[Rfam]
RNA sequence: GGGAUGUUGUUAUGCACUGGAUUUAUAUCUGGGUUUGGUUAACGGCCAAACCCUUU
Numbered sequence: 001g002g003g004a005u006g007u008u009g010u011u012a013u014g015c016a017c018u019g020g021a022u023u024u025a026u027a028u029c030u031g032g033g034u035u036u037g038g039u040u041a042a043c044g045g046c047c048a049a050a051c052c053c054u055u056u
Base pairs, nucleotide, nucleotide: 002018003017005016006015007014031053032052033051034050035049036048037047038046039045

The record is a 56-nucleotide RNA sequence from Cylindrospermopsis raciborskii, which matches "Cyanobacteria heterocyst sRNA" in Rfam. The literature on the family includes a 2016 paper in Front Microbiol by Brenes-Alvarez et al., "Identification of Conserved and Potentially Regulatory Small RNAs in Heterocystous Cyanobacteria".